[Rfam]
RNA sequence: CUCUUAGGUCCGUGACACAAUGACGCAGCUAGUGAGGUUCUAACCAAGGCGCGCCUAUUGCUGGUUGAAAACUAUUUCCAAACCCCCUCUUAAGCCUGGGUCGAACCCUGGCCUUUGAGAAUUUUUGGAAGGGUUCCCUUCGGGGUAAAGCC
Numbered sequence: 001c002u003c004u005u006a007g008g009u010c011c012g013u014g015a016c017a018c019a020a021u022g023a024c025g026c027a028g029c030u031a032g033u034g035a036g037g038u039u040c041u042a043a044c045c046a047a048g049g050c051g052c053g054c055c056u057a058u059u060g061c062u063g064g065u066u067g068a069a070a071a072c073u074a075u076u077u078c079c080a081a082a083c084c085c086c087c088u089c090u091u092a093a094g095c096c097u098g099g100g101u102c103g104a105a106c107c108c109u110g111g112c113c114u115u116u117g118a119g120a121a122u123u124u125u126u127g128g129a130a131g132g133g134u135u136c137c138c139u140u141c142g143g144g145g146u147a148a149a150g151c152c
Base pairs, nucleotide, nucleotide: 022055024053025052026051028050029049030048036045037044038043087119088118089117092114094112095111096110098108099107100106132152133151134150135149
Record summary
U4 spliceosomal RNA: a 152-nucleotide RNA sequence from Durio zibethinus. The family's RNA type in Rfam is spliceosomal small nuclear RNA. Pairs were carried over by alignment from the consensus structure, which is taken from published work. A search with the family's covariance model found it, with a score of 77 bits.